[Rfam]
RNA sequence: CUCUUAAGUGAUGACGUGAUAGACGAAGUGCCACAUCAUCAUGUCUAAUCACUGACAUGUCAUUGAAGGUGAUGGCAUGACAAUGAGGUGUCUAUGACAAGGCAUGAUGAUGUGGCACUCUAAUUGUCACAUCAUCACUUAAUGGAA
Numbered sequence: 001c002u003c004u005u006a007a008g009u010g011a012u013g014a015c016g017u018g019a020u021a022g023a024c025g026a027a028g029u030g031c032c033a034c035a036u037c038a039u040c041a042u043g044u045c046u047a048a049u050c051a052c053u054g055a056c057a058u059g060u061c062a063u064u065g066a067a068g069g070u071g072a073u074g075g076c077a078u079g080a081c082a083a084u085g086a087g088g089u090g091u092c093u094a095u096g097a098c099a100a101g102g103c104a105u106g107a108u109g110a111u112g113u114g115g116c117a118c119u120c121u122a123a124u125u126g127u128c129a130c131a132u133c134a135u136c137a138c139u140u141a142a143u144g145g146a147a
Base pairs, nucleotide, nucleotide: 001145002144004142005141006140007139008138009137010136011135012134013133014132016130017129018128019127020126021125022124025121027119028118029117030116031115032114033113034112035111036110037109038108039107040106041105042104043103044102045101046100049097050096051095054092055091056090057089058088059076060075061074062073063072
This 147-nucleotide RNA sequence from Glycine max belongs to the Rfam family "MIR4371 microRNA precursor family". Taxonomically the source falls in Glycine subgen. Soja (Eukaryota, Gunneridae, Fabaceae, Papilionoideae). Clan: MIR4387 microRNA precursor clan. The base pairs follow the family's consensus structure, which was predicted with RNAalifold.